[Rfam]
RAGATH-18 RNA: a 73-nucleotide RNA.
RNA sequence: CCUAUAGAGAGUACAAGAACUUGUAAGUAGUGAUUGACUUGUCAACACAAAAGCAUACUCGUUGAAGUAGGAA
Numbered sequence: 001c002c003u004a005u006a007g008a009g010a011g012u013a014c015a016a017g018a019a020c021u022u023g024u025a026a027g028u029a030g031u032g033a034u035u036g037a038c039u040u041g042u043c044a045a046c047a048c049a050a051a052a053g054c055a056u057a058c059u060c061g062u063u064g065a066a067g068u069a070g071g072a073a
Stems, first nucleotide, its partner, number of pairs: 001071005009060005022055003030048003034045004
Rfam's curators put it in the seed alignment.
It is annotated as a small RNA.
Rfam's curators write: Actinobacteria, Firmicutes, Fusobacteria, Thermotogae (1 example).